[Rfam]
RNA sequence: CUUCAAAUAUUGUCCCUGUCCUGAUAGUUCAAUGAUCAGGCUAGUCGCUUGCUAUAUUAAAACUCUGCAAUGUGUCCCCAGGACUUGCUUAUUUCUCUAGUUUUGUGUUUUUAAUGGCUAGUGACAUGU
Numbered sequence: 001c002u003u004c005a006a007a008u009a010u011u012g013u014c015c016c017u018g019u020c021c022u023g024a025u026a027g028u029u030c031a032a033u034g035a036u037c038a039g040g041c042u043a044g045u046c047g048c049u050u051g052c053u054a055u056a057u058u059a060a061a062a063c064u065c066u067g068c069a070a071u072g073u074g075u076c077c078c079c080a081g082g083a084c085u086u087g088c089u090u091a092u093u094u095c096u097c098u099a100g101u102u103u104u105g106u107g108u109u110u111u112u113a114a115u116g117g118c119u120a121g122u123g124a125c126a127u128g129u
Stems, first nucleotide, its partner, number of pairs: 004051002016044003020040006062122003067118002079105007087097001
RNA: Small nucleolar RNA SNORA72